Shown here is a 573-nucleotide part of an RNA from Bigelowiella natans, a member of the family "Eukaryotic large subunit ribosomal RNA". The family has 88 seed sequences and 107,465 matches in Rfam 15.1. Rfam links the family to the GO terms ribosome and structural constituent of ribosome. It is one of the family's seed sequences.
[Rfam]
RNA sequence: UAGAGAAAGGUAGGUAAGGGAAUUCGGCAAAUUAGAUCUGUAACUUCGGGAUAAGGAUUGGCUUCGAUCGUUACCCCCCUGGGUAUCGCUGCGGAAGUGCGCAGUGAAGUUUCGCGUGGCGGAGACCCGACGGCCUACACAAAAUACGAGAUCUAUACACAUCCCACAGCGGGUGCAACUCCCCGAUCCAAGGAUGUGUGUCUGUAUACUAAUGGACGGUCUUUGUGUGGCGGGUGUCGUGUCAGGGGUCACCGAGGAACGAUACUGAUACCUGGGGGAGGUUGACUCAAUUGAAACUGGCGCGGACCAAGGGAAUCCGACUGUCUACUAAAAACACAGCAUUGCGAUGGUCCCCCGCGGAUGUUGACGCAAUGUGAAUCCUGCCCAGUGCUCAGACUGUCAAGACGGAGAGAUUCGACGAAGCACGGGUAAACGGCGGGAGUAACUAUGACUCUCUUAAGGUAGCUAAAUGCCUCGUCAUCUAAUUAGUGACGUGCAUGAAUGGAGCAACGAGAUUCCUACUGUCCCUACCUACCCUCUAGCGAAACCACAGCCAAGGGAACGGGCUUGGGA
Number, nucleotide and partner (000 for none) at each position: 001u541002a540003g539004a538005g000006a000007a000008a000009g536010g535011u534012a533013g532014g531015u530016a529017a000018g527019g526020g525021a000022a000023u000024u000025c000026g000027g000028c000029a000030a000031a000032u000033u000034a000035g059036a058037u057038c056039u055040g000041u000042a000043a000044c049045u000046u000047c000048g000049g044050g000051a000052u000053a000054a000055g039056g038057a037058u036059u035060g298061g297062c000063u295064u294065c293066g292067a291068u290069c000070g286071u285072u284073a283074c000075c278076c277077c276078c275079c274080u000081g272082g271083g115084u114085a000086u000087c000088g110089c109090u108091g000092c000093g000094g000095a000096a000097g102098u000099g000100c000101g000102c097103a000104g000105u000106g000107a000108a090109g089110u088111u000112u000113c000114g084115c083116g000117u000118g000119g000120c000121g000122g000123a000124g000125a000126c000127c000128c000129g000130a000131c000132g000133g000134c000135c000136u000137a000138c000139a000140c000141a000142a000143a000144a000145u000146a000147c000148g000149a000150g000151a000152u000153c000154u000155a000156u000157a000158c000159a000160c000161a000162u000163c000164c000165c000166a000167c000168a000169g000170c000171g000172g000173g000174u000175g000176c000177a000178a000179c000180u000181c000182c000183c000184c000185g000186a000187u000188c000189c000190a000191a000192g000193g000194a000195u000196g000197u000198g000199u000200g000201u000202c000203u000204g000205u000206a000207u000208a000209c000210u000211a000212a000213u000214g000215g000216a000217c000218g000219g000220u000221c000222u000223u000224u000225g000226u000227g000228u000229g000230g000231c000232g000233g000234g000235u000236g000237u000238c000239g000240u000241g000242u000243c000244a000245g000246g000247g000248g000249u000250c000251a000252c000253c000254g000255a000256g000257g000258a000259a000260c000261g000262a000263u000264a000265c000266u000267g000268a000269u000270a000271c082272c081273u000274g079275g078276g077277g076278g075279a000280g000281g000282u000283u073284g072285a071286c070287u000288c000289a000290a068291u067292u066293g065294a064295a063296a000297c061298u060299g303300g000301c000302g000303c299304g000305g000306a000307c000308c000309a000310a000311g520312g519313g518314a517315a516316u515317c514318c512319g511320a000321c000322u336323g335324u334325c000326u000327a000328c000329u000330a000331a000332a000333a000334a324335c323336a322337c000338a000339g375340c374341a373342u372343u371344g370345c369346g368347a000348u000349g000350g362351u361352c360353c359354c000355c000356c000357g000358c000359g353360g352361a351362u350363g000364u000365u000366g000367a000368c346369g345370c344371a343372a342373u341374g340375u339376g000377a000378a000379u506380c505381c504382u000383g437384c436385c435386c000387a000388g434389u433390g430391c429392u428393c427394a000395g426396a000397c000398u425399g424400u423401c000402a000403a000404g000405a000406c417407g416408g415409a414410g000411a000412g000413a000414u409415u408416c407417g406418a000419c000420g000421a000422a000423g400424c399425a398426c395427g393428g392429g391430u390431a000432a000433a389434c388435g385436g384437c383438g456439g455440g454441a453442g452443u451444a000445a000446c000447u000448a000449u000450g000451a443452c442453u441454c440455u439456c438457u461458u000459a000460a000461g457462g000463u000464a000465g000466c000467u000468a000469a000470a000471u000472g000473c000474c000475u000476c000477g493478u492479c491480a490481u489482c000483u000484a000485a000486u000487u000488a000489g481490u480491g479492a478493c477494g000495u000496g000497c000498a000499u000500g000501a000502a000503u000504g381505g380506a379507g000508c000509a000510a000511c319512g318513a000514g317515a316516u315517u314518c313519c312520u311521a000522c000523u000524g000525u020526c019527c018528c000529u016530a015531c014532c013533u012534a011535c010536c009537c000538u004539c003540u002541a001542g000543c000544g000545a000546a000547a000548c000549c000550a000551c000552a000553g000554c571555c570556a569557a568558g567559g000560g000561a000562a000563c000564g000565g000566g000567c558568u557569u556570g555571g554572g000573a000